[Rfam]
The record is a 110-nucleotide RNA from Mesobacillus subterraneus, which matches "SAM riboswitch aptamer (S box leader)" in Rfam. Pairs were carried over by alignment from the consensus structure, which is taken from published work.
RNA sequence: AUCUUAUCGAGAGAAGCUGAGGGUCCUGGCCCUAUGAAGCUUCAGCAACCUUCAACUUUGUUGAAAAGGUGCUAAUUCCAGCAAGUUUUCAAAAACUUGGCAGAUAAGAA
Numbered sequence: 001a002u003c004u005u006a007u008c009g010a011g012a013g014a015a016g017c018u019g020a021g022g023g024u025c026c027u028g029g030c031c032c033u034a035u036g037a038a039g040c041u042u043c044a045g046c047a048a049c050c051u052u053c054a055a056c057u058u059u060g061u062u063g064a065a066a067a068g069g070u071g072c073u074a075a076u077u078c079c080a081g082c083a084a085g086u087u088u089u090c091a092a093a094a095a096c097u098u099g100g101c102a103g104a105u106a107a108g109a110a
Stems, first nucleotide, its partner, number of pairs: 002109007013043005021032003026081004044073004049069002051065004077102001082099006